Source information:
The family of this 41-nucleotide RNA sequence from Glycomyces paridis is "L31-Actinobacteria ribosomal protein leader". On this family, see Eckert and Weinberg, BMC Microbiol 2020: "Discovery of 20 novel ribosomal leader candidates in bacteria and archaea". The base pairs follow the family's consensus structure, which is taken from published work.
RNA sequence: GCGGUUCCGGUUCACGGCUGCACGCAGCCGACCCGGCGACC
Number, nucleotide and partner (000 for none) at each position: 001g000002c000003g041004g040005u039006u000007c036008c035009g034010g033011u000012u000013c000014a000015c030016g029017g028018c027019u026020g025021c000022a000023c000024g000025c020026a019027g018028c017029c016030g015031a000032c000033c010034c009035g008036g007037c000038g000039a005040c004041c003